[Rfam]
RNA: DUF3800-I RNA
RNA sequence: UAUAGGUGCAGGUAGAAAUACGCUGUUUACUCAUGUAAUCGAAUUAACGUUUAAGCGAACUGUAAGCUCGCCGACCAUGAGGAAGCCACCCACACCUUUGGGUGGCUUUUAUUUUAUCU
Number, nucleotide and partner (000 for none) at each position: 001u000002a000003u000004a000005g000006g000007u000008g026009c025010a024011g023012g021013u020014a019015g000016a000017a000018a000019u014020a013021c012022g000023c011024u010025g009026u008027u000028u000029a000030c081031u080032c079033a078034u077035g076036u000037a000038a000039u074040c073041g072042a051043a050044u049045u000046a000047a000048c000049g044050u043051u042052u000053a000054a000055g071056c070057g069058a068059a000060c066061u000062g000063u000064a000065a000066g060067c000068u058069c057070g056071c055072c041073g040074a039075c000076c035077a034078u033079g032080a031081g030082g109083a108084a107085g106086c105087c104088a103089c102090c101091c100092a000093c000094a000095c000096c000097u000098u000099u000100g091101g090102g089103u088104g087105g086106c085107u084108u083109u082110u000111a000112u000113u000114u000115u000116a000117u000118c000119u000